A member of the RNA family "mir-219 microRNA precursor family" from Cyclopterus lumpus, 81 nucleotides long. The source organism's lineage runs through Eukaryota, Teleostomi, Cottioidei, Cyclopterinae and Cyclopterus. The match comes from Rfam's covariance-model search (73 bits). Rfam links the family to the GO terms miRNA-mediated post-transcriptional gene silencing and RISC complex. The family's consensus secondary structure was predicted with RNAalifold.
[Rfam]
RNA sequence: UUAGCGGCUGAUUGUCCAAACGCAAUUCUUGAGUAAACUCAAAUUCAACCGCGAGAAUUGUGUAUGGACAUCUGUUGCUGC
Numbered sequence: 001u002u003a004g005c006g007g008c009u010g011a012u013u014g015u016c017c018a019a020a021c022g023c024a025a026u027u028c029u030u031g032a033g034u035a036a037a038c039u040c041a042a043a044u045u046c047a048a049c050c051g052c053g054a055g056a057a058u059u060g061u062g063u064a065u066g067g068a069c070a071u072c073u074g075u076u077g078c079u080g081c
Stems, first nucleotide, its partner, number of pairs: 002080006010072003014069005021062011